[Rfam]
Rfam assigns this 235-nucleotide RNA from Proteus myxofaciens to the family "GlmZ RNA activator of glmS mRNA". The family is grouped with related families in Rfam's "Glm clan". It scores 61 bits against the family's covariance model. Rfam classes the family as a small RNA. Rfam describes the family as follows. This RNA was discovered in E. coli during a large scale screen. The sraJ gene was expressed in early logarithmic phase, but its level decreased with cell growth.

RNA sequence: UCAGUUGCUCAUUCAACUUUUUAUGUCGGUCCACAAUAAUGGGUGGGAACAUACCACAUAAGCCAGGAAUGACGCCAGAGUAAGGUGCCUACCGUCCAACAUCAUGAUACUCGUCUUCGGACCUUAUCAAACUCAGGGCGACACGUGGAGUGAGGCACCACCUUCAUUUUCUUUUAGAUAAAAAAGAGAUGAAAUAUUGACGAGCGGAAUAUCUCAGUAAGAUAUUCCGCUCUCC
Dot-bracket structure: .(...(((((((....(.(..(.................................)...).....)..)))).)).)..)...(((((((...((((........((((...............)))).......)))).............))))))).........(((((((......)))))))...............(((((((((((.....))))))))))).....
Numbered sequence: 001u002c003a004g005u006u007g008c009u010c011a012u013u014c015a016a017c018u019u020u021u022u023a024u025g026u027c028g029g030u031c032c033a034c035a036a037u038a039a040u041g042g043g044u045g046g047g048a049a050c051a052u053a054c055c056a057c058a059u060a061a062g063c064c065a066g067g068a069a070u071g072a073c074g075c076c077a078g079a080g081u082a083a084g085g086u087g088c089c090u091a092c093c094g095u096c097c098a099a100c101a102u103c104a105u106g107a108u109a110c111u112c113g114u115c116u117u118c119g120g121a122c123c124u125u126a127u128c129a130a131a132c133u134c135a136g137g138g139c140g141a142c143a144c145g146u147g148g149a150g151u152g153a154g155g156c157a158c159c160a161c162c163u164u165c166a167u168u169u170u171c172u173u174u175u176a177g178a179u180a181a182a183a184a185a186g187a188g189a190u191g192a193a194a195u196a197u198u199g200a201c202g203a204g205c206g207g208a209a210u211a212u213c214u215c216a217g218u219a220a221g222a223u224a225u226u227c228c229g230c231u232c233u234c235c
Stems, first nucleotide, its partner, number of pairs: 002080001006077001007075002009072004017066001019060001022056001084159007094139004106128004169188007204230011